[Rfam]
RNA sequence: CUGCAGUGAUGAUGACGACGACUAUGUCACUUUCCUGAUUAAAUACUGUGAUGGUAUUUCAGUCACUACCUCAUCUGAGACUGCUA
Numbered sequence: 001c002u003g004c005a006g007u008g009a010u011g012a013u014g015a016c017g018a019c020g021a022c023u024a025u026g027u028c029a030c031u032u033u034c035c036u037g038a039u040u041a042a043a044u045a046c047u048g049u050g051a052u053g054g055u056a057u058u059u060c061a062g063u064c065a066c067u068a069c070c071u072c073a074u075c076u077g078a079g080a081c082u083g084c085u086a
Stems, first nucleotide, its partner, number of pairs: 003084005
Dot-bracket structure: ..(((((........................................................................)))))..